Overview
Group II catalytic intron D1-D4-1: a 106-nucleotide RNA sequence from Rhodoferax antarcticus. The source organism's lineage runs through Bacteria, Pseudomonadota, Betaproteobacteria, Rhodoferax and Rhodoferax antarcticus. Rfam's curators write: Group II introns are found in rRNA, tRNA and mRNA of organelles in fungi, plants and protists, and also in mRNA in bacteria. On this family, see Chu et al., EMBO J 2001: "Control of branch-site choice by a group II intron".

RNA sequence: GCCUCAUGCCUGAAAGGGCGACAGUGCAAACUGGAGCGAGAAGUCAGCAGAGGCCGUAGUAGUCGUAGGCGAAACCCACAACGGGAGAAGACCGAAGGCGAAGGGC
Numbered sequence: 001g002c003c004u005c006a007u008g009c010c011u012g013a014a015a016g017g018g019c020g021a022c023a024g025u026g027c028a029a030a031c032u033g034g035a036g037c038g039a040g041a042a043g044u045c046a047g048c049a050g051a052g053g054c055c056g057u058a059g060u061a062g063u064c065g066u067a068g069g070c071g072a073a074a075c076c077c078a079c080a081a082c083g084g085g086a087g088a089a090g091a092c093c094g095a096a097g098g099c100g101a102a103g104g105g106c
Stems, first nucleotide, its partner, number of pairs: 001027002004023001007020005044051002053106003062099003082094003